[Rfam]
RNA sequence: GGUCUUGAGCUCCAGCGCACAGCCCCGGCUUGCUGGACAGCAACCCUCCUUUCGCGGCGGGGUGCUCCGGGUGACGACCAGGCAGCAGCCGACCGGCUGCUCGCAAGCGCGGACC
Numbered sequence: 001g002g003u004c005u006u007g008a009g010c011u012c013c014a015g016c017g018c019a020c021a022g023c024c025c026c027g028g029c030u031u032g033c034u035g036g037a038c039a040g041c042a043a044c045c046c047u048c049c050u051u052u053c054g055c056g057g058c059g060g061g062g063u064g065c066u067c068c069g070g071g072u073g074a075c076g077a078c079c080a081g082g083c084a085g086c087a088g089c090c091g092a093c094c095g096g097c098u099g100c101u102c103g104c105a106a107g108c109g110c111g112g113a114c115c
Stems, first nucleotide, its partner, number of pairs: 001079004009038001011037006021030002039066003044062003048057002082104002084101007
This 115-nucleotide RNA from Luteipulveratus halotolerans belongs to the Rfam family "SAM (S-adenosyl methionine) riboswitch aptamer". Clan: SAM clan. The match comes from Rfam's covariance-model search (107 bits). Taxonomically the source falls in Luteipulveratus (Bacteria, Bacillati, Actinomycetota, Micrococcales).